[Rfam]
RNA sequence: AUGUGAUCCAGUAUAUGGGGAUGAUUCCCACACAUUCAACGCCCGGUUUACAGGAAAAACAAAAGGGGGGAUAAAAUAUCCCCCCUUUGCUUAACU
Numbered sequence: 001a002u003g004u005g006a007u008c009c010a011g012u013a014u015a016u017g018g019g020g021a022u023g024a025u026u027c028c029c030a031c032a033c034a035u036u037c038a039a040c041g042c043c044c045g046g047u048u049u050a051c052a053g054g055a056a057a058a059a060c061a062a063a064a065g066g067g068g069g070g071a072u073a074a075a076a077u078a079u080c081c082c083c084c085c086u087u088u089g090c091u092u093a094a095c096u
Stems, first nucleotide, its partner, number of pairs: 010036003016032002019029002062088011